Shown here is a 68-nucleotide RNA from Arabidopsis lyrata, a member of the family "Plastid-clpP 5UTR RNA". NCBI's taxonomy places the organism under Eukaryota, Euphyllophyta, Pentapetalae, Arabidopsis, Arabidopsis lyrata. The literature on the family includes a 2023 paper in Plant Commun by Richter et al., "Retrograde signaling in plants: A critical review focusing on the GUN pathway and beyond". Plastid clpP is a non-coding RNA (ncRNA) recognised in plastids. It was found in the prime untranslated region (5UTR) of a protease complex subunit (clpP) in plastids, suggesting a posible cis-regulatory function. It scores 69 bits against the family's covariance model.
[Rfam]
RNA sequence: AAUUCAAUUCAUAGAAAAAAGGGAAGCGGAUCUAUUCUAUAUCCGAUAAGUACCAAUAUGCAAUGGGG
Numbered sequence: 001a002a003u004u005c006a007a008u009u010c011a012u013a014g015a016a017a018a019a020a021g022g023g024a025a026g027c028g029g030a031u032c033u034a035u036u037c038u039a040u041a042u043c044c045g046a047u048a049a050g051u052a053c054c055a056a057u058a059u060g061c062a063a064u065g066g067g068g
Stems, first nucleotide, its partner, number of pairs: 003021002008016003042067003050059003